[Rfam]
RNA sequence: AAAGAGUGGAGUUCAGCGACCACUUAAAAAAACGGGGCGACACCAAAAGCCUUACGAGUAGGAAAUUU
Numbered sequence: 001a002a003a004g005a006g007u008g009g010a011g012u013u014c015a016g017c018g019a020c021c022a023c024u025u026a027a028a029a030a031a032a033c034g035g036g037g038c039g040a041c042a043c044c045a046a047a048a049g050c051c052u053u054a055c056g057a058g059u060a061g062g063a064a065a066u067u068u
Base pairs, nucleotide, nucleotide: 006023007022008021009020036051037050038049043062044061
The family of this 68-nucleotide RNA sequence is "DUF805 RNA". The family is grouped with related families in Rfam's "DUF805 clan". The family's consensus secondary structure is taken from published work. Rfam classes the family as a cis-regulatory element.